[Rfam]
RNA: Nuclear RNase P
Organism: Botryobasidium botryosum
RNA sequence: AUAGAUGGAAAGCCGCGAUUGCUUGCAACGCGCCAGACGACAGACUAGCCCCAAGGGGCAUCGCUCGUCUCAUCUCGCAAGCGGGCCAAGGUCUGAGUAUUCCAGUCCCCCUAGAUCGACUCCAGCUGGGUCCGGCCUUAACAGGGGCACGAACGGCGUACCAGAAAUACUGCCUGCGUCGUCCUUUCUACACCCGGAGAUCUCUGUACCAGAGUGAGGGUUCGACCGCGCAUGGCAUUGGGAUCCGCCGUGGGGACUGAGUGGCUGGUAUUCAGAGGCUUAUUGCCCCUUUCGUUCUUCGAUCGUUUGGGAUGCACAUGCCCCCACCGUCACUCUUCAGUGCACUUCGCGGCUCGCGCUAUCCACUCUCUCGCUCCCAUGCAGAGAGGCGCAAAACUCGAUUCAGACUACUCUCCGUCUGC
Numbered sequence: 001a002u003a004g005a006u007g008g009a010a011a012g013c014c015g016c017g018a019u020u021g022c023u024u025g026c027a028a029c030g031c032g033c034c035a036g037a038c039g040a041c042a043g044a045c046u047a048g049c050c051c052c053a054a055g056g057g058g059c060a061u062c063g064c065u066c067g068u069c070u071c072a073u074c075u076c077g078c079a080a081g082c083g084g085g086c087c088a089a090g091g092u093c094u095g096a097g098u099a100u101u102c103c104a105g106u107c108c109c110c111c112u113a114g115a116u117c118g119a120c121u122c123c124a125g126c127u128g129g130g131u132c133c134g135g136c137c138u139u140a141a142c143a144g145g146g147g148c149a150c151g152a153a154c155g156g157c158g159u160a161c162c163a164g165a166a167a168u169a170c171u172g173c174c175u176g177c178g179u180c181g182u183c184c185u186u187u188c189u190a191c192a193c194c195c196g197g198a199g200a201u202c203u204c205u206g207u208a209c210c211a212g213a214g215u216g217a218g219g220g221u222u223c224g225a226c227c228g229c230g231c232a233u234g235g236c237a238u239u240g241g242g243a244u245c246c247g248c249c250g251u252g253g254g255g256a257c258u259g260a261g262u263g264g265c266u267g268g269u270a271u272u273c274a275g276a277g278g279c280u281u282a283u284u285g286c287c288c289c290u291u292u293c294g295u296u297c298u299u300c301g302a303u304c305g306u307u308u309g310g311g312a313u314g315c316a317c318a319u320g321c322c323c324c325c326a327c328c329g330u331c332a333c334u335c336u337u338c339a340g341u342g343c344a345c346u347u348c349g350c351g352g353c354u355c356g357c358g359c360u361a362u363c364c365a366c367u368c369u370c371u372c373g374c375u376c377c378c379a380u381g382c383a384g385a386g387a388g389g390c391g392c393a394a395a396a397c398u399c400g401a402u403u404c405a406g407a408c409u410a411c412u413c414u415c416c417g418u419c420u421g422c
Base pairs, nucleotide, nucleotide: 002421003420004419007416008415009414012353013352014351015350016349017348018347021082022081023080024079025078035070036069037068038067039066040065093406094405095404096403097402108255109254110253111252118132119131120130121129122128134148136146137145138144153251154250155249156248157247158246171237172236173235354394356392357391358390359389360388